[Rfam]
Shown here is a 73-nucleotide RNA from Erpetoichthys calabaricus, a member of the family "mir-29 microRNA precursor family". From the family's description: This family represents the microRNA (miRNA) precursors mir-29. On this family, see Ambros, Cell 2001: "microRNAs: tiny regulators with great potential". Lineage of the source: Eukaryota > Bilateria > Chordata > Craniata > Erpetoichthys.
RNA sequence: GGAAGCUGGUUUCAGAUGGUGGCUUAGAGUUACUUCAUGAAAUGUAUCUAGCACCAUUUGAAAUCAGUGUUCU
Numbered sequence: 001g002g003a004a005g006c007u008g009g010u011u012u013c014a015g016a017u018g019g020u021g022g023c024u025u026a027g028a029g030u031u032a033c034u035u036c037a038u039g040a041a042a043u044g045u046a047u048c049u050a051g052c053a054c055c056a057u058u059u060g061a062a063a064u065c066a067g068u069g070u071u072c073u
Stems, first nucleotide, its partner, number of pairs: 001073004005068010016057006025050004